SAH (S-adenosyl-L-homocysteine) riboswitch aptamer: a 78-nucleotide sequence from Actinomycetospora corticicola. Taxonomically the source falls in Actinomycetospora (Bacteria, Bacillati, Pseudonocardiales, Pseudonocardiaceae).
[Rfam]
RNA sequence: GCCGCCGAGUGGCGCUGCAACGGGCCUCGCCCGCCACGCUCGGUGGAUUCCGCACCAUCGCAAGGGCGCCUCCACACG
Dot-bracket structure: .(((((((............(((((...)))))......)))))))................................
Record summary
A search with the family's covariance model found it, with a score of 38 bits.